[Rfam]
RNA sequence: AAUAAAAAAGGUACAUCUGUCGAAAGUUUGGGGCGCGAAGCCGCGGAUUUAAUACGACAGCUGCGAUGAGCGGGCUACCGUGG
Numbered sequence: 001a002a003u004a005a006a007a008a009a010g011g012u013a014c015a016u017c018u019g020u021c022g023a024a025a026g027u028u029u030g031g032g033g034c035g036c037g038a039a040g041c042c043g044c045g046g047a048u049u050u051a052a053u054a055c056g057a058c059a060g061c062u063g064c065g066a067u068g069a070g071c072g073g074g075c076u077a078c079c080g081u082g083g
Base pairs, nucleotide, nucleotide: 003080011036012035016031017030019028021026039076040075041074042073044072045071047067048066049065
The record is an 83-nucleotide sequence, which matches "c-di-GMP-I-GGC riboswitch aptamer" in Rfam. Rfam's curators put it in the seed alignment. For this family Rfam cites "Structural basis of ligand binding by a c-di-GMP riboswitch" (Smith et al., Nat Struct Mol Biol, 2009).